This 100-nucleotide RNA from Halobacterium hubeiense belongs to the Rfam family "L4-Archaeoglobi ribosomal protein leades". On this family, see Eckert and Weinberg, BMC Microbiol 2020: "Discovery of 20 novel ribosomal leader candidates in bacteria and archaea". The family's RNA type in Rfam is cis-regulatory leader.
[Rfam]
RNA sequence: CUGAAGGGCGCGUUCGGGUCAAUUGCGGAAUGCAACACCCAAUCUCGCUCCAGACGCCUCCCGGUAUGGAGGUCGAGGAGGGGGAGCGCGUGACCAUCAG
Dot-bracket structure: ((((...((((((..(((....(((((...)))))..)))..((((.((((.........................)))).)))))))))).....))))
Notes: NCBI's taxonomy places the organism under Archaea, Methanobacteriota, Halobacteriales, Halobacteriaceae, Halobacterium. It scores 68 bits against the family's covariance model.